Background: Shown here is a 93-nucleotide sequence from Danionella cerebrum, a member of the family "Small nucleolar SNORD12/SNORD106". Rfam classes the family as a C/D-box small nucleolar RNA. The family is grouped with related families in Rfam's "SNORD12 clan". It scores 45 bits against the family's covariance model. The organism belongs to Danionella, within Eukaryota. Gene Ontology terms of the family: RNA processing and nucleolus. Rfam 15.1 lists 2,264 matches to the family in 650 species.
[Rfam]
Nucleotides: 093
Base pairs, nucleotide, nucleotide: 001093003091004090005089006088007087008086
Number, partner (000 for none) and nucleotide at each position: 001093u002000c003091u004090g005089u006088u007087g008086c009000a010000c011000a012000u013000g014000a015000u016000g017000a018000c019000c020000a021000u022000g023000a024000u025000c026000u027000u028000u029000u030000u031000u032000c033000c034000c035000c036000a037000g038000c039000a040000g041000a042000u043000c044000g045000a046000c047000a048000c049000u050000g051000u052000u053000g054000a055000c056000c057000a058000u059000u060000u061000g062000a063000a064000a065000u066000a067000a068000a069000u070000u071000a072000a073000g074000c075000c076000a077000a078000a079000u080000a081000c082000c083000u084000g085000a086008g087007c088006a089005a090004c091003a092000a093001a
A reference for the family is Huttenhofer et al. (2001), "RNomics: an experimental approach that identifies 201 candidates for novel, small, non-messenger RNAs in mouse", EMBO J.